Lysine riboswitch aptamer: a 171-nucleotide RNA from Lactobacillus acidophilus. Rfam describes the family as follows. Riboswitches are metabolite binding domains within certain messenger RNAs that serve as precision sensors for their corresponding targets. Allosteric rearrangement of mRNA structure is mediated by ligand binding, and this results in modulation of gene expression. This family includes riboswitches that sense lysine in a number of genes involved in lysine metabolism, including lysC.

RNA sequence: GUAAAUCAUAGAGGCGCAACUGACAAGAGUAACAAUUAUAAGUUAGGCAAAACGAUGAUUAAUUGUGAAAGGGGAGGUUGCCGAAGCUUAACCACGCCAAAGGUAUAGGCUGGGUCGCAGUUGAAUAAAUUGCGAACUGUCGCGAAAAUUUCGCGGAGCGCUAUCGAAUAU
Numbered sequence: 001g002u003a004a005a006u007c008a009u010a011g012a013g014g015c016g017c018a019a020c021u022g023a024c025a026a027g028a029g030u031a032a033c034a035a036u037u038a039u040a041a042g043u044u045a046g047g048c049a050a051a052a053c054g055a056u057g058a059u060u061a062a063u064u065g066u067g068a069a070a071g072g073g074g075a076g077g078u079u080g081c082c083g084a085a086g087c088u089u090a091a092c093c094a095c096g097c098c099a100a101a102g103g104u105a106u107a108g109g110c111u112g113g114g115u116c117g118c119a120g121u122u123g124a125a126u127a128a129a130u131u132g133c134g135a136a137c138u139g140u141c142g143c144g145a146a147a148a149u150u151u152c153g154c155g156g157a158g159c160g161c162u163a164u165c166g167a168a169u170a171u
Base pairs, nucleotide, nucleotide: 006166008164009163010162011161016081017080018079019078020077021076024073032066033065034064035063036062037061038060085111086110087109088108089107090106091104092103093102112138113137115135116134117133118132119131120130121129122128140156141155142154143153144152145151146150